[Rfam]
RNA sequence: UUUGAUAACCGGAGUUAGAUGCGCCAUAUAUGACAGAUUUUUGUGAUUACUGAGGGCUCUUUGUAUUC
Numbered sequence: 001u002u003u004g005a006u007a008a009c010c011g012g013a014g015u016u017a018g019a020u021g022c023g024c025c026a027u028a029u030a031u032g033a034c035a036g037a038u039u040u041u042u043g044u045g046a047u048u049a050c051u052g053a054g055g056g057c058u059c060u061u062u063g064u065a066u067u068c
Base pairs, nucleotide, nucleotide: 013064018061019060021058023057024056025055027049028048031046033044034043035042036041
A member of the RNA family "Small Cajal body specific RNA ncR26" from Arabis alpina, 68 nucleotides long. A reference for the family is Qu et al. (2015), "Promoter-based identification of novel non-coding RNAs reveals the presence of dicistronic snoRNA-miRNA genes in Arabidopsis thaliana", BMC Genomics. A search with the family's covariance model found it, with a score of 60 bits. It is annotated as a small Cajal body RNA. The family's consensus secondary structure was predicted with RNAfold.